RNA sequence: ACGAUGUUCCGCUGCAAGGAAUUAGCUGCAAGAGCGUCUG
Number, nucleotide and partner (000 for none) at each position: 001a000002c000003g038004a037005u036006g035007u034008u033009c032010c000011g000012c000013u030014g029015c028016a027017a000018g000019g000020a000021a000022u000023u000024a000025g000026c000027u016028g015029c014030a013031a000032g009033a008034g007035c006036g005037u004038c003039u000040g000
RNA: Ribosomal protein L19 leader
Organism: Niallia taxi